[Rfam]
RNA sequence: UUACCCCAUGAUGCUCAGGUCCGCCGCAUCUCCUGGGUCGUGGGGUCGGUCGGCUGGCCUCGGAUUUGCGGAUUCCUCGUGCUGCAACCGGAACCAGCCGACCCCCAU
Numbered sequence: 001u002u003a004c005c006c007c008a009u010g011a012u013g014c015u016c017a018g019g020u021c022c023g024c025c026g027c028a029u030c031u032c033c034u035g036g037g038u039c040g041u042g043g044g045g046u047c048g049g050u051c052g053g054c055u056g057g058c059c060u061c062g063g064a065u066u067u068g069c070g071g072a073u074u075c076c077u078c079g080u081g082c083u084g085c086a087a088c089c090g091g092a093a094c095c096a097g098c099c100g101a102c103c104c105c106c107a108u
Base pairs, nucleotide, nucleotide: 003046004045005044006043007042008041009040010039014037015036016035017034018033019032048103049102050101051100052099053098054097055096056095057094
The family of this 108-nucleotide RNA sequence from Sinorhizobium medicae is "EcpR1". Its family is annotated with mRNA binding, negative regulation of cell cycle and regulation of translation in response to stress in the Gene Ontology. The organism belongs to Sinorhizobium medicae, within Bacteria. A reference for the family is Wilms et al. (2012), "Deep sequencing uncovers numerous small RNAs on all four replicons of the plant pathogen Agrobacterium tumefaciens", RNA Biol. From the family's description: Perviously named SmelC291, SmrC10, or Sra33. According to its overproduction phenotype it was renamed Elongated Cell Phenotype RNA1. Induced by stress,EcpR1 negatively regulates cell cycle master regulatory genes dnaA and gcrA at post-transcriptional level by base pairing between its strongly conserved GC-rich loop and the target mRNAs. It's regulation is hfq-independent but requires RNase E to regulate dnaA.